The family of this 76-nucleotide RNA from Bucco capensis is "Small nucleolar RNA SNORD19". On this family, see Huttenhofer et al., EMBO J 2001: "RNomics: an experimental approach that identifies 201 candidates for novel, small, non-messenger RNAs in mouse". The pairing is the family consensus, mapped onto this sequence. It is annotated as a C/D-box small nucleolar RNA. The source organism's lineage runs through Eukaryota, Metazoa, Amniota, Dinosauria and Bucco.

[Rfam]
RNA sequence: GAAAAAUGAAGAUAUUCUGACAGUUUCCUAUUAUUACAGUGAAGACCUCAGAUCCAACUCUGAUUUCACUCUUGUU
Number, nucleotide and partner (000 for none) at each position: 001g067002a066003a065004a064005a000006a000007u000008g000009a000010a000011g000012a000013u000014a000015u000016u000017c000018u000019g000020a000021c000022a000023g000024u000025u000026u000027c000028c000029u000030a000031u000032u000033a000034u000035u000036a000037c000038a000039g000040u000041g000042a000043a000044g000045a000046c000047c000048u000049c000050a000051g000052a000053u000054c000055c000056a000057a000058c000059u000060c000061u000062g000063a000064u004065u003066u002067c001068a000069c000070u000071c000072u000073u000074g000075u000076u000